Shown here is a 45-nucleotide sequence from Sporolactobacillus putidus, a member of the family "Ribosomal protein L19 leader".
Gene Ontology term of the family: regulation of gene expression.
The match comes from Rfam's covariance-model search (43 bits).
This family is a putative r-protein leader autoregulatory structure found in B. subtilis and other low-GC Gram-positive bacteria. It is located in the 5' untranslated regions of mRNAs encoding ribosomal protein L19 (rplS).
RNA sequence: ACGAUGUUCCGCUGCAGUUUUACUUACGGAUUGCAAGAGCAUUUG
Numbered sequence: 001a002c003g004a005u006g007u008u009c010c011g012c013u014g015c016a017g018u019u020u021u022a023c024u025u026a027c028g029g030a031u032u033g034c035a036a037g038a039g040c041a042u043u044u045g
Stems, first nucleotide, its partner, number of pairs: 003043007013035008